The record is a 78-nucleotide RNA sequence from Coptotermes formosanus, which matches "let-7 microRNA precursor family" in Rfam.
[Rfam]
RNA sequence: CCAGGGUGAGGUAGUAGGUUGUAUAGUUGUGAACUACAUCAUUUUUGGGAGAACUGUACAACUUGCUAACUUUCCUUG
Numbered sequence: 001c002c003a004g005g006g007u008g009a010g011g012u013a014g015u016a017g018g019u020u021g022u023a024u025a026g027u028u029g030u031g032a033a034c035u036a037c038a039u040c041a042u043u044u045u046u047g048g049g050a051g052a053a054c055u056g057u058a059c060a061a062c063u064u065g066c067u068a069a070c071u072u073u074c075c076u077u078g
Stems, first nucleotide, its partner, number of pairs: 001078001003076004008072003012068016029042004044051002
This family represents the microRNAs (miRNA) let-7 and mir-98. let-7 was identified from a study of developmental timing in C. elegans, and was later shown to be part of a much larger class of non-coding RNAs termed miRNAs. Pairs were carried over by alignment from the consensus structure, which was predicted with RNAalifold. Rfam 15.1 lists 8,694 matches to the family in 797 species.